[Rfam]
RNA: RAGATH-10 RNA
RNA sequence: GAAACCUCAUUUUGCUCAGGCGCCAUCCGGGCGUCGAGCAGUGUUUUUUACAAGAAAACACAGGCAUUCCGCCUGGAUGAGGAGAGAGG
Dot-bracket structure: ....((((((((..(((..(((((.....))))).)))..((((((((....))))).)))((((.....)))))))))))).......